RNA sequence: CGCAGAUGAUGUUUUAUCACGAUGGUCUACUGAAAUCUUUGAUGACACUGCCUCAUGGCACUCUGCUGAUGUGACACU
Numbered sequence: 001c002g003c004a005g006a007u008g009a010u011g012u013u014u015u016a017u018c019a020c021g022a023u024g025g026u027c028u029a030c031u032g033a034a035a036u037c038u039u040u041g042a043u044g045a046c047a048c049u050g051c052c053u054c055a056u057g058g059c060a061c062u063c064u065g066c067u068g069a070u071g072u073g074a075c076a077c078u
Stems, first nucleotide, its partner, number of pairs: 001073004
Rfam assigns this 78-nucleotide RNA from Mizuhopecten yessoensis to the family "Small nucleolar RNA SNORD35". Pairs were carried over by alignment from the consensus structure, which was predicted with PFOLD. U35 is a C/D box snoRNA located in intron 6 of ribosomal protein L13A and intron 3 of ribosomal protein S11 in humans and at homologous positions in mouse and chicken ribosomal protein genes. U35 guides the methylation of 2'-O-ribose sites in 28S rRNA. It scores 41 bits against the family's covariance model.